[Rfam]
RNA: tRNA
RNA sequence: GGGUUAGUAUUUUAAUAGGUAGAAAUUUUUCUUGUCAAGAAAAAAAGUGUCGGUUCAAAUCCGACCUAACUCG
Numbered sequence: 001g002g003g004u005u006a007g008u009a010u011u012u013u014a015a016u017a018g019g020u021a022g023a024a025a026u027u028u029u030u031c032u033u034g035u036c037a038a039g040a041a042a043a044a045a046a047g048u049g050u051c052g053g054u055u056c057a058a059a060u061c062c063g064a065c066c067u068a069a070c071u072c073g
Stems, first nucleotide, its partner, number of pairs: 001072007010025004027043005049065005